The family of this 364-nucleotide RNA from Alkalilimnicola ehrlichii is "Bacterial RNase P class A". Taxonomically the source falls in Alkalilimnicola ehrlichii (Bacteria, Gammaproteobacteria, Chromatiales, Ectothiorhodospiraceae). It is annotated as a ribozyme.

RNA sequence: GGAGUCGGCCGGGCAGCCGCUGCGGCCCGGGUCGCGAGACCCGGUGCGCGGAGGAAAGUCCGGGCUCCACAGGGCAGGGUGCCAGGUAACGCCUGGGGGGCGUGAGCCCACGGAAAGUGCCACAGAAAACAAACCGCCGAUGGCCCUUCGGGGCACAGGUAAGGGUGAAACGGUGCGGUAAGAGCGCACCGCGCGACUGGUAACAGUUCGCGGCACGGUAAACCCCACCCGGAGCAAGACCAAAUAGGGGAGCAAUGGCGUGGCCCGCGCUGCUCCCGGGUAGGUUGCUAGAGGCAGGUGGUGACACCUGUCCCAGAGGAAUGGCUGUCCCCGACAGAACCCGGCUUACAGGCCGACUCCACCU
Numbered sequence: 001g002g003a004g005u006c007g008g009c010c011g012g013g014c015a016g017c018c019g020c021u022g023c024g025g026c027c028c029g030g031g032u033c034g035c036g037a038g039a040c041c042c043g044g045u046g047c048g049c050g051g052a053g054g055a056a057a058g059u060c061c062g063g064g065c066u067c068c069a070c071a072g073g074g075c076a077g078g079g080u081g082c083c084a085g086g087u088a089a090c091g092c093c094u095g096g097g098g099g100g101c102g103u104g105a106g107c108c109c110a111c112g113g114a115a116a117g118u119g120c121c122a123c124a125g126a127a128a129a130c131a132a133a134c135c136g137c138c139g140a141u142g143g144c145c146c147u148u149c150g151g152g153g154c155a156c157a158g159g160u161a162a163g164g165g166u167g168a169a170a171c172g173g174u175g176c177g178g179u180a181a182g183a184g185c186g187c188a189c190c191g192c193g194c195g196a197c198u199g200g201u202a203a204c205a206g207u208u209c210g211c212g213g214c215a216c217g218g219u220a221a222a223c224c225c226c227a228c229c230c231g232g233a234g235c236a237a238g239a240c241c242a243a244a245u246a247g248g249g250g251a252g253c254a255a256u257g258g259c260g261u262g263g264c265c266c267g268c269g270c271u272g273c274u275c276c277c278g279g280g281u282a283g284g285u286u287g288c289u290a291g292a293g294g295c296a297g298g299u300g301g302u303g304a305c306a307c308c309u310g311u312c313c314c315a316g317a318g319g320a321a322u323g324g325c326u327g328u329c330c331c332c333g334a335c336a337g338a339a340c341c342c343g344g345c346u347u348a349c350a351g352g353c354c355g356a357c358u359c360c361a362c363c364u
Base pairs, nucleotide, nucleotide: 001360002359003358004357005356006355007354008353009352010351011349012329013328014327015326016325017324018323020051021050022049023048024047027044028043029042030041031040032039056347057346058345060344061343062342063341064340065234066233067232068231072266073265074264075263077230078229079228080227081226082096083095084094085093086092097111098109099108100107101106112225113224117223118222119219120218121217134164135163136160137159138158141157142156143154144153145152146151172190173189174188175187176186177185191214192212193211194210195209196208197206198205199204238286239285240284241283248277249276250275251274252273253272257271258270259269260268261267293312294311295310296309297308298307299306300305